[Rfam]
The record is a 100-nucleotide RNA sequence from Ornithinibacillus halophilus, which matches "Purine riboswitch aptamer" in Rfam.
The base pairs follow the family's consensus structure, which is taken from published work.
The source organism's lineage runs through Bacteria, Bacillati, Bacilli, Caryophanales and Ornithinibacillus.
RNA sequence: CAUCAAUUAAAUACGGGUCCUCAUAUAUUUCUUGGGAUAUGGCCUUGAAGUUUCUACCCGGCACCGUAAAUGCUGGACUAUGAGGAAGGAUGAAUCAUUG
Numbered sequence: 001c002a003u004c005a006a007u008u009a010a011a012u013a014c015g016g017g018u019c020c021u022c023a024u025a026u027a028u029u030u031c032u033u034g035g036g037a038u039a040u041g042g043c044c045u046u047g048a049a050g051u052u053u054c055u056a057c058c059c060g061g062c063a064c065c066g067u068a069a070a071u072g073c074u075g076g077a078c079u080a081u082g083a084g085g086a087a088g089g090a091u092g093a094a095u096c097a098u099u100g
Stems, first nucleotide, its partner, number of pairs: 018086008029049003034044002058076006